[Rfam]
Nucleotides: 087
Base pairs, nucleotide, nucleotide: 005083006082007081008080009079010078012076013075014074015073016072017071018070019069022066023065024064025063026062027061028060029059030058031057032056
Number, partner (000 for none) and nucleotide at each position: 001000c002000a003000a004000u005083g006082g007081c008080u009079g010078g011000a012076g013075c014074c015073c016072u017071u018070u019069a020000a021000a022066c023065c024064u025063g026062g027061c028060c029059c030058a031057g032056u033000c034000a035000g036000c037000a038000c039000c040000a041000g042000g043000g044000g045000g046000a047000c048000u049000g050000g051000u052000a053000c054000c055000a056032a057031c058030u059029g060028g061027g062026c063025c064024a065023g066022g067000u068000u069019u070018a071017a072016a073015g074014g075013g076012c077000u078010c079009c080008a081007g082006c083005c084000a085000u086000a087000g

A member of the RNA family "mir-130 microRNA precursor family" from Phrynocephalus forsythii, 87 nucleotides long. Taxonomically the source falls in Phrynocephalus (Eukaryota, Tetrapoda, Episquamata, Iguania). The literature on the family includes a 2003 paper in Dev Cell by Houbaviy et al., "Embryonic stem cell-specific MicroRNAs".